[Rfam]
RNA sequence: AGCUGUUUGAGGUUAACCCGACGUCCAUGGUUGGACUAGGGAAUACCUCUAACGGCCCC
Numbered sequence: 001a002g003c004u005g006u007u008u009g010a011g012g013u014u015a016a017c018c019c020g021a022c023g024u025c026c027a028u029g030g031u032u033g034g035a036c037u038a039g040g041g042a043a044u045a046c047c048u049c050u051a052a053c054g055g056c057c058c059c
Base pairs, nucleotide, nucleotide: 002056003055004054005053006052008051009050011049012048017041018040019039023036024035025034026033027032
Pestivirus 3' UTR SLI: a 59-nucleotide RNA sequence from Orthopestivirus tauri. The organism belongs to Orthopestivirus tauri, within Viruses. It is annotated as a cis-regulatory element. Pairs were carried over by alignment from the consensus structure.